[Rfam]
RNA sequence: UUGCCACGGUGAACAUUCAACGCUGUCGGUGAGUUUUGGUAUGGAUCACAUAGAAACCAUCGACCGUUGACUGUGCCCCGUGGCAC
Numbered sequence: 001u002u003g004c005c006a007c008g009g010u011g012a013a014c015a016u017u018c019a020a021c022g023c024u025g026u027c028g029g030u031g032a033g034u035u036u037u038g039g040u041a042u043g044g045a046u047c048a049c050a051u052a053g054a055a056a057c058c059a060u061c062g063a064c065c066g067u068u069g070a071c072u073g074u075g076c077c078c079c080g081u082g083g084c085a086c
Base pairs, nucleotide, nucleotide: 002085003084004083005082006081007080008079014073015072017070018069019068020067021066022065025064026063027062028061029060030059031058033057034056035055036054